[Rfam]
RNA sequence: UAGGUUUGUCCUAAGUCAAACUUCUUCAAGUUUGACCAAGUUUAUAGAAAAAUAUAGCAAUAUUUUCAACACAAAACAAAUAUACUAAAAAAAAAAAUUCAAUGGUGGAUUUAACGGAACUAAUUUGAUAUUGUCGAUGUUGUUAUGUUUUUCUAUAAACUUGGUCAAAUUUUAAGAAGUUUAACUUAGAACAAACUCAA
Numbered sequence: 001u002a003g004g005u006u007u008g009u010c011c012u013a014a015g016u017c018a019a020a021c022u023u024c025u026u027c028a029a030g031u032u033u034g035a036c037c038a039a040g041u042u043u044a045u046a047g048a049a050a051a052a053u054a055u056a057g058c059a060a061u062a063u064u065u066u067c068a069a070c071a072c073a074a075a076a077c078a079a080a081u082a083u084a085c086u087a088a089a090a091a092a093a094a095a096a097a098u099u100c101a102a103u104g105g106u107g108g109a110u111u112u113a114a115c116g117g118a119a120c121u122a123a124u125u126u127g128a129u130a131u132u133g134u135c136g137a138u139g140u141u142g143u144u145a146u147g148u149u150u151u152u153c154u155a156u157a158a159a160c161u162u163g164g165u166c167a168a169a170u171u172u173u174a175a176g177a178a179g180u181u182u183a184a185c186u187u188a189g190a191a192c193a194a195a196c197u198c199a200a
Stems, first nucleotide, its partner, number of pairs: 005195005011189006018182009031169005045155008055145003059141006067133002072127004
A member of the RNA family "MIR1435 microRNA precursor family" from Oryza meyeriana, 200 nucleotides long. Rfam links the family to the GO terms RISC complex and miRNA-mediated post-transcriptional gene silencing. A search with the family's covariance model found it, with a score of 110 bits. The base pairs follow the family's consensus structure, which was predicted with RNAalifold. The source organism's lineage runs through Eukaryota, Magnoliopsida, Liliopsida, Oryzoideae and Oryza meyeriana.